Background: This 112-nucleotide RNA sequence from Megasphaera sp. An286 belongs to the Rfam family "Ribosomal protein L20 leader".

RNA sequence: AAAAUAAAGCAGAAGCUAUCCGCUUCUCACCUUACAUGGCUUUCGUGUUACUAAGGUUUAUGAGGAAUCAGUCGAGCGGAUAGUGUUAUGCUGUCCGUUCUUUUUUUAUGGA
Numbered sequence: 001a002a003a004a005u006a007a008a009g010c011a012g013a014a015g016c017u018a019u020c021c022g023c024u025u026c027u028c029a030c031c032u033u034a035c036a037u038g039g040c041u042u043u044c045g046u047g048u049u050a051c052u053a054a055g056g057u058u059u060a061u062g063a064g065g066a067a068u069c070a071g072u073c074g075a076g077c078g079g080a081u082a083g084u085g086u087u088a089u090g091c092u093g094u095c096c097g098u099u100c101u102u103u104u105u106u107u108a109u110g111g112a
Base pairs, nucleotide, nucleotide: 011027012026013025014024015023016022029057030056031055037050038049039048040047075099076098077097078096079095080094081093082092083091084090

Rfam's curators write: This family is a putative r-protein leader autoregulatory structure found in B. subtilis and other low-GC Gram-positive bacteria. It is located in the 5' untranslated regions of mRNAs encoding initiation factor 3 followed by ribosomal proteins L35 and L20 (infC-rpmI-rplT). A Rho-independent transcription terminator structure that is probably involved in regulation is included at the 3' end. The match comes from Rfam's covariance-model search (59 bits). Taxonomically the source falls in Megasphaera (Bacteria, Bacillati, Negativicutes, Veillonellales).